[Rfam]
Shown here is a 153-nucleotide RNA sequence from Psychromonas algicola, a member of the family "Molybdenum/Tungsten riboswitch aptamer (Moco RNA motif)". Rfam links the family to the GO terms regulation of gene expression, tungstate binding and molybdenum ion binding. The literature on the family includes a 2008 paper in Mol Microbiol by Regulski et al., "in molybdenum cofactor and tungsten cofactor metabolism".
RNA sequence: CAUUUAAUUUAGCUCCGAGCUUAUAUCACUAAGUUAGACGAGUAUUUGUCAAAAUAUGUGAUUUAAGCCGCUUAACUGAAUUUUGGUUAAGAAGGGUAAACUUAGAAAUGAGUUUGCCUCCCGUGUUUGGAAAGGAACUGACAUGCAAUUAAU
Numbered sequence: 001c002a003u004u005u006a007a008u009u010u011a012g013c014u015c016c017g018a019g020c021u022u023a024u025a026u027c028a029c030u031a032a033g034u035u036a037g038a039c040g041a042g043u044a045u046u047u048g049u050c051a052a053a054a055u056a057u058g059u060g061a062u063u064u065a066a067g068c069c070g071c072u073u074a075a076c077u078g079a080a081u082u083u084u085g086g087u088u089a090a091g092a093a094g095g096g097u098a099a100a101c102u103u104a105g106a107a108a109u110g111a112g113u114u115u116g117c118c119u120c121c122c123g124u125g126u127u128u129g130g131a132a133a134g135g136a137a138c139u140g141a142c143a144u145g146c147a148a149u150u151a152a153u
Stems, first nucleotide, its partner, number of pairs: 003147001006144001011139002014136003019068005025062005033055003071091008094119011120130002